This 75-nucleotide RNA from Cnephaeus nilssonii belongs to the Rfam family "mir-9223 microRNA precursor family". Gene Ontology terms of the family: RISC complex and miRNA-mediated post-transcriptional gene silencing. Taxonomically the source falls in Cnephaeus (Eukaryota, Deuterostomia, Craniata, Chiroptera).

[Rfam]
RNA sequence: GGCGGUUCUCUGGUAACACACCCCAGAAUCGGGCUCCCUCUUCCCUGGUUCCGGGUAAGUCACUGGAGGACCCCA
Dot-bracket structure: .(..((((((((((.((..((((..((((((((..........)))))))).))))..)).))))))))))..).